[Rfam]
Nucleotides: 051
Base pairs, nucleotide, nucleotide: 001041002040009036010035012034013031014030020049021048022047023046
Number, partner (000 for none) and nucleotide at each position: 001041a002040a003000c004000a005000u006000c007000a008000g009036c010035c011000g012034g013031a014030c015000a016000u017000a018000c019000g020049u021048a022047a023046g024000u025000u026000g027000c028000a029000a030014g031013u032000g033000c034012c035010g036009g037000g038000g039000a040002u041001u042000c043000a044000g045000u046023c047022u048021u049020a050000c051000a
The record is a 51-nucleotide RNA sequence from Polerovirus TRIYSV, which matches "Exoribonuclease-resistant RNA (xrRNA) plant-infecting virus (class 3)" in Rfam. Exoribonuclease-resistant RNA (xrRNA) plant-infecting virus (class 3) is a ncRNA that was reported in Plant viruses. A reference for the family is Steckelberg et al. (2020), "The crystal structure of a Polerovirus exoribonuclease-resistant RNA shows how diverse sequences are integrated into a conserved fold", RNA. The family's consensus secondary structure is taken from published work. Taxonomically the source falls in Polerovirus TRIYSV (Viruses, Pisoniviricetes, Sobelivirales, Solemoviridae).